Shown here is a 170-nucleotide RNA sequence from Steatornis caripensis, a member of the family "U1 spliceosomal RNA". A search with the family's covariance model found it, with a score of 128 bits. The family has 100 seed sequences and 40,184 matches in Rfam 15.1. Rfam classes the family as a spliceosomal small nuclear RNA. Lineage of the source: Eukaryota > Bilateria > Theropoda > Strisores > Steatornis.
RNA sequence: UUACUUACCUGGCAGGGGAGACACCAUGAUCAGGCAGGUGGUUUUCCCAGGGCGAGGCUCAUCCCCUGCACUCCGGGUGUGCUGACCCCUGCGAUUUCCCCAAAUGCGGGAAACUCGACUGCAUAAUUUGUGGUAGUGGGGUUUAUUUUUUGGAUGUGAGGGCGAUCUGG
Numbered sequence: 001u002u003a004c005u006u007a008c009c010u011g012g013c014a015g016g017g018g019a020g021a022c023a024c025c026a027u028g029a030u031c032a033g034g035c036a037g038g039u040g041g042u043u044u045u046c047c048c049a050g051g052g053c054g055a056g057g058c059u060c061a062u063c064c065c066c067u068g069c070a071c072u073c074c075g076g077g078u079g080u081g082c083u084g085a086c087c088c089c090u091g092c093g094a095u096u097u098c099c100c101c102a103a104a105u106g107c108g109g110g111a112a113a114c115u116c117g118a119c120u121g122c123a124u125a126a127u128u129u130g131u132g133g134u135a136g137u138g139g140g141g142u143u144u145a146u147u148u149u150u151u152g153g154a155u156g157u158g159a160g161g162g163c164g165a166u167c168u169g170g
Stems, first nucleotide, its partner, number of pairs: 012122004016048006023042005049090004054086001056083003060079005092117003095113003099109002146170001